[Rfam]
RNA: TPP riboswitch aptamer (THI element)
Organism: Aliivibrio fischeri
RNA sequence: GACUUCUCAUCGGGGAGCUUUGGCUGAGAUUAAUGAAGAUUGGAUAAUGUUCAUUUAAACCCGUAUCACCUGAACCAGAUAAUGCUGGCGUAGGAAUUGAGAUGACAUUCUCC
Numbered sequence: 001g002a003c004u005u006c007u008c009a010u011c012g013g014g015g016a017g018c019u020u021u022g023g024c025u026g027a028g029a030u031u032a033a034u035g036a037a038g039a040u041u042g043g044a045u046a047a048u049g050u051u052c053a054u055u056u057a058a059a060c061c062c063g064u065a066u067c068a069c070c071u072g073a074a075c076c077a078g079a080u081a082a083u084g085c086u087g088g089c090g091u092a093g094g095a096a097u098u099g100a101g102a103u104g105a106c107a108u109u110c111u112c113c
Stems, first nucleotide, its partner, number of pairs: 006101004011063004017024002032055006069094004075088004